This 145-nucleotide sequence from Cucumis sativus belongs to the Rfam family "small nucleolar RNA snoR137".
Gene Ontology terms of the family: RNA processing and nucleolus.
RNA sequence: GUUGCUUCUUAUUGGUGAACUCUCUCAUAUUUGAUCAUGGUGGAUGUUCAUGUUUCUGAAGCAUAAAUUGAUUCUAAAUUUGCCAGUAUUGAACAGCUCUGUGUAAUUUCCUAUUGCAGCCUGCUACCUGUCUCCUGGUACACCC
Numbered sequence: 001g002u003u004g005c006u007u008c009u010u011a012u013u014g015g016u017g018a019a020c021u022c023u024c025u026c027a028u029a030u031u032u033g034a035u036c037a038u039g040g041u042g043g044a045u046g047u048u049c050a051u052g053u054u055u056c057u058g059a060a061g062c063a064u065a066a067a068u069u070g071a072u073u074c075u076a077a078a079u080u081u082g083c084c085a086g087u088a089u090u091g092a093a094c095a096g097c098u099c100u101g102u103g104u105a106a107u108u109u110c111c112u113a114u115u116g117c118a119g120c121c122u123g124c125u126a127c128c129u130g131u132c133u134c135c136u137g138g139u140a141c142a143c144c145c
Stems, first nucleotide, its partner, number of pairs: 003063006016050005021044003025040001082139005088133001095125003099119003